[Rfam]
RNA sequence: GGUCAAUGAUGUAUCUAUAUAUUUGCUACUCCUCAUUGAGCCUAGCUCAUGACGACAAACCUUUAUCACCAAGAUCUCUGAGACU
Dot-bracket structure: ((((.............................................................................))))
RNA: Small nucleolar RNA SNORD24
Organism: Seminavis robusta